[Rfam]
Shown here is a 71-nucleotide RNA sequence, a member of the family "pemK RNA". Rfam classes the family as a cis-regulatory element. Pairs were carried over by alignment from the consensus structure, which is taken from published work.

RNA sequence: AUAAUGGUACACCUGCCCCGCGUAUGCGGGGCCAGCUCGGAGAGAUCCUCGGAGGGGUGAGAGUCCCGUGG
Numbered sequence: 001a002u003a004a005u006g007g008u009a010c011a012c013c014u015g016c017c018c019c020g021c022g023u024a025u026g027c028g029g030g031g032c033c034a035g036c037u038c039g040g041a042g043a044g045a046u047c048c049u050c051g052g053a054g055g056g057g058u059g060a061g062a063g064u065c066c067c068g069u070g071g
Stems, first nucleotide, its partner, number of pairs: 012068001013035003036054003040050003055067003
It is one of the family's seed sequences.